[Rfam]
RNA sequence: CUUUCCGCGUUGAUUCUCGUUAAAGCAGAGUAAAAUGCGGAAUUACCAAGGUUUGUCUGAUAACGCAAAAACGCAGCAAUGGCGUAAGACGUAAUGCGAUAUCAAACAAUUAGCGGGCUGCGGGUUGCAGCUUGGCCGGCAAAUGGAAUGUGAUCUGUCGACGUAAAUCAGAGGCUAUUCCCCGAGUAAAAGUGCUGUUUUUCACAAAGAAAAACAGGCUUACCGAGAUAAUGCGCCCCUAUGCAGGCGACAACCGGGAGGUUGACGGCUUUGCGAGAAGACACGGGGUUUUCGGUUUUAACCCGGCCAUAGAGGUUAUGCCCAAAUAAUUCA
Numbered sequence: 001c002u003u004u005c006c007g008c009g010u011u012g013a014u015u016c017u018c019g020u021u022a023a024a025g026c027a028g029a030g031u032a033a034a035a036u037g038c039g040g041a042a043u044u045a046c047c048a049a050g051g052u053u054u055g056u057c058u059g060a061u062a063a064c065g066c067a068a069a070a071a072c073g074c075a076g077c078a079a080u081g082g083c084g085u086a087a088g089a090c091g092u093a094a095u096g097c098g099a100u101a102u103c104a105a106a107c108a109a110u111u112a113g114c115g116g117g118c119u120g121c122g123g124g125u126u127g128c129a130g131c132u133u134g135g136c137c138g139g140c141a142a143a144u145g146g147a148a149u150g151u152g153a154u155c156u157g158u159c160g161a162c163g164u165a166a167a168u169c170a171g172a173g174g175c176u177a178u179u180c181c182c183c184g185a186g187u188a189a190a191a192g193u194g195c196u197g198u199u200u201u202u203c204a205c206a207a208a209g210a211a212a213a214a215c216a217g218g219c220u221u222a223c224c225g226a227g228a229u230a231a232u233g234c235g236c237c238c239c240u241a242u243g244c245a246g247g248c249g250a251c252a253a254c255c256g257g258g259a260g261g262u263u264g265a266c267g268g269c270u271u272u273g274c275g276a277g278a279a280g281a282c283a284c285g286g287g288g289u290u291u292u293c294g295g296u297u298u299u300a301a302c303c304c305g306g307c308c309a310u311a312g313a314g315g316u317u318a319u320g321c322c323c324a325a326a327u328a329a330u331u332c333a
Stems, first nucleotide, its partner, number of pairs: 003042006014032001016030003053109004058104003064098004071092003076083002122332004133309007145181005154172004191220003195217004200212004222296005235289005248267002251264005
RNA: RNase E 5' UTR element